[Rfam]
Shown here is an 82-nucleotide RNA from Ralstonia solanacearum, a member of the family "SucA RNA motif". Rfam links the family to the GO term regulation of translation. The family's RNA type in Rfam is cis-regulatory element. It is one of the family's seed sequences. A reference for the family is Weinberg et al. (2007), "Identification of 22 candidate structured RNAs in bacteria using the CMfinder comparative genomics pipeline", Nucleic Acids Res. The source organism's lineage runs through Bacteria, Pseudomonadota, Burkholderiales, Ralstonia solanacearum species complex and Ralstonia solanacearum.
RNA sequence: UUGCGAUCCGCUAACCGGUCAAGCCGUGUCGCGGAAGGUUGAUGAACCCGCUGAACUCCGGCAGACCCGGAGAAGGUGAGCG
Numbered sequence: 001u002u003g004c005g006a007u008c009c010g011c012u013a014a015c016c017g018g019u020c021a022a023g024c025c026g027u028g029u030c031g032c033g034g035a036a037g038g039u040u041g042a043u044g045a046a047c048c049c050g051c052u053g054a055a056c057u058c059c060g061g062c063a064g065a066c067c068c069g070g071a072g073a074a075g076g077u078g079a080g081c082g
Stems, first nucleotide, its partner, number of pairs: 002082003007035005016026004037048004049078004056072006